[Rfam]
Nucleotides: 258
Base pairs, nucleotide, nucleotide: 001152002151003150004149005148015142016141017140018139027130028129029128031127032126033125037053038052039051040050041049054112055111056110057109058108059107060106153168154167155166156165
Number, partner (000 for none) and nucleotide at each position: 001152g002151g003150c004149a005148a006000u007000a008000a009000a010000u011000u012000a013000u014000u015142a016141u017140u018139u019000g020000a021000a022000a023000u024000a025000a026000a027130u028129a029128c030000a031127g032126c033125g034000g035000a036000c037053c038052c039051g040050g041049g042000g043000g044000c045000g046000g047000c048000a049041c050040c051039c052038g053037g054112c055111a056110c057109c058108u059107c060106c061000a062000c063000c064000a065000u066000c067000u068000a069000a070000g071000a072000a073000a074000g075000a076000a077000u078000u079000c080000a081000u082000a083000g084000u085000u086000a087000g088000c089000u090000a091000a092000a093000g094000c095000a096000u097000u098000g099000u100000c101000a102000a103000c104000a105000u106060g107059g108058g109057g110056g111055u112054g113000a114000a115000u116000u117000a118000g119000a120000c121000u122000c123000g124000a125033c126032g127031c128029g129028u130027a131000u132000a133000a134000u135000a136000a137000a138000g139018a140017a141016a142015u143000a144000g145000u146000u147000u148005u149004u150003g151002c152001u153168c154167a155166g156165c157000a158000u159000g160000a161000u162000a163000c164000u165156g166155c167154u168153g169000g170000c171000c172000g173000u174000a175000a176000g177000g178000c179000a180000a181000u182000a183000g184000a185000u186000c187000a188000u189000a190000a191000a192000a193000a194000u195000a196000a197000a198000c199000g200000c201000a202000a203000a204000c205000g206000a207000c208000a209000a210000u211000a212000a213000g214000c215000g216000u217000u218000c219000u220000g221000u222000a223000c224000u225000a226000g227000c228000a229000g230000c231000u232000a233000a234000u235000g236000a237000c238000a239000a240000u241000g242000u243000c244000a245000a246000u247000u248000a249000c250000g251000c252000u253000g254000c255000a256000u257000u258000a
Rfam assigns this 258-nucleotide sequence from a Rickettsiales bacterium to the family "permuted transfer-messenger RNA". The family's consensus secondary structure is taken from published work. The sequence is in the family's curated seed alignment.